[Rfam]
Background: Group I catalytic intron: a 294-nucleotide sequence from Variovorax terrae. The match comes from Rfam's covariance-model search (76 bits).
RNA sequence: AUGGAUGCCUUAUCAUCCUAGGGUGGGCCGUUAGCUCAGUUGGUUAGAGCAGAGGACUCAUCAAAAUGGUGACCGCCCGGGGAGACCCGGGCUGGAAAAACCGGGUGAACUCAGGGAAACCUAAAGCGUAUGCCAAGGCAAUCCUGAGCCAAGCCUGCCGAAGGCAGUUGUAGGCAGGAAGGUGCAGAGACUAGGACGUGAGGAGCCAAGCCGAUAACCGUCCAUCAGCGCCCGGCACCCUAGCGAUGUGAUUCGUGGGUGAUGAGAUAGUCCUGGGAGCGGGGAAACUCGCGC
Numbered sequence: 001a002u003g004g005a006u007g008c009c010u011u012a013u014c015a016u017c018c019u020a021g022g023g024u025g026g027g028c029c030g031u032u033a034g035c036u037c038a039g040u041u042g043g044u045u046a047g048a049g050c051a052g053a054g055g056a057c058u059c060a061u062c063a064a065a066a067u068g069g070u071g072a073c074c075g076c077c078c079g080g081g082g083a084g085a086c087c088c089g090g091g092c093u094g095g096a097a098a099a100a101c102c103g104g105g106u107g108a109a110c111u112c113a114g115g116g117a118a119a120c121c122u123a124a125a126g127c128g129u130a131u132g133c134c135a136a137g138g139c140a141a142u143c144c145u146g147a148g149c150c151a152a153g154c155c156u157g158c159c160g161a162a163g164g165c166a167g168u169u170g171u172a173g174g175c176a177g178g179a180a181g182g183u184g185c186a187g188a189g190a191c192u193a194g195g196a197c198g199u200g201a202g203g204a205g206c207c208a209a210g211c212c213g214a215u216a217a218c219c220g221u222c223c224a225u226c227a228g229c230g231c232c233c234g235g236c237a238c239c240c241u242a243g244c245g246a247u248g249u250g251a252u253u254c255g256u257g258g259g260u261g262a263u264g265a266g267a268u269a270g271u272c273c274u275g276g277g278a279g280c281g282g283g284g285a286a287a288c289u290c291g292c293g294c
Base pairs, nucleotide, nucleotide: 005031006030007029009027010026011025012024013023101235102234103233104232106230107229111147112146113145114144115143116142120138121137122136148183149182154177161171163169164168187273189272190271191270192269193268238259239258240257243254279292280291281290282289283288